A member of the RNA family "c-di-GMP-I-GGC riboswitch aptamer" from Cohnella sp. CIP 111063, 89 nucleotides long. Clan: c-di-GMP_I riboswitch clan. A reference for the family is Smith et al. (2010), "Structural and biochemical determinants of ligand binding by the c-di-GMP riboswitch ", Biochemistry. It scores 70 bits against the family's covariance model.
RNA sequence: ACACGAAAAGGCAAACCCUUCGAAAGAGGGGGACGCAAAGCUAUGGGCCUAAAGAACUCUCCAGUUCAAUGGCUGCCAGGCCGCCGAAU
Numbered sequence: 001a002c003a004c005g006a007a008a009a010g011g012c013a014a015a016c017c018c019u020u021c022g023a024a025a026g027a028g029g030g031g032g033a034c035g036c037a038a039a040g041c042u043a044u045g046g047g048c049c050u051a052a053a054g055a056a057c058u059c060u061c062c063a064g065u066u067c068a069a070u071g072g073c074u075g076c077c078a079g080g081c082c083g084c085c086g087a088a089u
Stems, first nucleotide, its partner, number of pairs: 001089001011036002016031006034075001040081003044078003047073003